[Rfam]
RNA sequence: ACCUGCAUUCGAAAGUGAUUGUGGGCUAUUUGUGCCCUGGUCGUUGAUAGUGCAGGGAGAAUAAUUACUGGAAGCGUUUCCCCGUGUUUGGAGGGCCCAUCCUGUCCCUUCCGAACCCUGGAGCUUUCGUACA
Numbered sequence: 001a002c003c004u005g006c007a008u009u010c011g012a013a014a015g016u017g018a019u020u021g022u023g024g025g026c027u028a029u030u031u032g033u034g035c036c037c038u039g040g041u042c043g044u045u046g047a048u049a050g051u052g053c054a055g056g057g058a059g060a061a062u063a064a065u066u067a068c069u070g071g072a073a074g075c076g077u078u079u080c081c082c083c084g085u086g087u088u089u090g091g092a093g094g095g096c097c098c099a100u101c102c103u104g105u106c107c108c109u110u111c112c113g114a115a116c117c118c119u120g121g122a123g124c125u126u127u128c129g130u131a132c133a
Base pairs, nucleotide, nucleotide: 002056003055004054005053006052007051008050009049014045015044016043017042018041019040020039021038023037024036025035026034067130069129070128071127072126073125074124075123086116087115088114089113090112091110092109093108094107095106